[Rfam]
RNA sequence: AAUGCAAGUGAUAAAAAACUAGACAGGGACAUCAGACUCUUUAUAUUAUUUGAGAGUGAUGACACAGUCUAAAUGGGAAUCUCUCUGAUGCAUU
Dot-bracket structure: .(((((..................................................................................))))).